RNA sequence: CGUCGUUCAUACGACCACCAAUGAUUCAGUAGCCUGUGAGAAUCGCCUUCGGGUGGCUACAGCGAAAGCUCCUGUAACCUGAAAGGGAGCAAACUUUGGUACAUCUGCGCACCUUUGAAAGCAGAUAUCGCCUGUACAAGCGCAU
Dot-bracket structure: .(((((....))))).......[[[[[.((((((.....]]]]](((....))))))))).......(((((.[[[.[[......)))))((...))]]]]].(((((.[.[.[[.....)))))(((.....))).]]].]...
The family of this 145-nucleotide sequence from Klebsiella michiganensis is "STAXI RNA". Pairs were carried over by alignment from the consensus structure, which is taken from published work. Rfam 15.1 lists 130 matches to the family in 68 species. Rfam classes the family as a small RNA.